This 87-nucleotide RNA from Pseudomonas sp. SSM44 belongs to the Rfam family "t44 RNA". It scores 74 bits against the family's covariance model. For this family Rfam cites "Transcriptome analysis of Escherichia coli using high-density oligonucleotide probe arrays" (Tjaden et al., Nucleic Acids Res, 2002). The base pairs follow the family's consensus structure, which was predicted with LocARNA. This family consists of a number of bacterial RNA genes of between 135 and 170 bases in length. NCBI's taxonomy places the organism under Bacteria, Pseudomonadota, Gammaproteobacteria, Pseudomonadaceae, Pseudomonas. By type it is a small RNA.
RNA sequence: UCAGGUGAACCUUAAAUCCGCACACGUAUCGUCACGGUAUCCUGGGUGCCCUUCGGGGUUGGAUAUUGGGAUGCGUGGAGGCCAAAC
Numbered sequence: 001u002c003a004g005g006u007g008a009a010c011c012u013u014a015a016a017u018c019c020g021c022a023c024a025c026g027u028a029u030c031g032u033c034a035c036g037g038u039a040u041c042c043u044g045g046g047u048g049c050c051c052u053u054c055g056g057g058g059u060u061g062g063a064u065a066u067u068g069g070g071a072u073g074c075g076u077g078g079a080g081g082c083c084a085a086a087c
Base pairs, nucleotide, nucleotide: 023077024076025075026074027073028072029071030070035068036067037066038065039064040063041062042061048059049058050057051056